A member of the RNA family "mir-29 microRNA precursor family" from Oncorhynchus kisutch, 69 nucleotides long. Lineage of the source: Eukaryota > Chordata > Gnathostomata > Osteoglossocephalai > Oncorhynchus. Rfam 15.1 lists 3,328 matches to the family in 787 species. On this family, see Ambros, Cell 2001: "microRNAs: tiny regulators with great potential". Its family is annotated with RISC complex and gene silencing by miRNA in the Gene Ontology. Rfam's curators write: This family represents the microRNA (miRNA) precursors mir-29. It scores 62 bits against the family's covariance model.
RNA sequence: GGAUGACUGAUUUCCUCUGGUGUUUAGAGCCCCUUAAAGCCUUCUAGCACCAUUUGAAAUCGGUUAUAA
Dot-bracket structure: ..(((.((((((((...(((((..((((..............)))).)))))...))))))))).))..